Nucleotides: 211
Stems, first nucleotide, its partner, number of pairs: 002100006008040002011037002014032003018029001020027002043093001045092002052087004056081001058079003061074002145203003149199003162191006169178003
Number, partner (000 for none) and nucleotide at each position: 001000c002100c003099a004098a005097u006096g007095u008040g009039g010000u011037c012036a013000u014032c015031c016030a017000u018029c019000g020027a021026g022000g023000u024000u025000a026021c027020u028000a029018g030016u031015g032014g033000c034000u035000c036012u037011g038000u039009c040008c041000a042000g043093g044000u045092g046091g047000u048000a049000u050000a051000u052087g053086g054085g055084a056081g057000c058079a059078u060077a061074g062073c063000c064000c065000u066000a067000a068000g069000u070000g071000c072000u073062g074061u075000g076000g077060u078059g079058u080000g081056c082000a083000g084055u085054c086053c087052c088000c089000c090000u091046u092045c093043c094000a095007g096006u097005g098004u099003u100002g101000a102000a103000g104000a105000g106000c107000g108000a109000g110000u111000c112000u113000g114000u115000c116000u117000c118000u119000g120000g121000u122000u123000c124000u125000a126000g127000a128000g129000c130000u131000g132000a133000c134000g135000a136000g137000g138000a139000c140000a141000g142000c143000a144000u145203c146202c147201u148000a149199u150198a151197u152000a153000u154000u155000u156000u157000u158000a159000u160000a161000a162191c163190u164189u165188c166187u167186c168000a169178g170177u171176c172000u173000c174000u175000a176171g177170a178169c179000a180000g181000u182000u183000a184000c185000u186167g187166a188165g189164g190163a191162g192000a193000a194000a195000c196000c197151a198150u199149g200000c201147a202146g203145g204000g205000u206000g207000c208000a209000a210000c211000u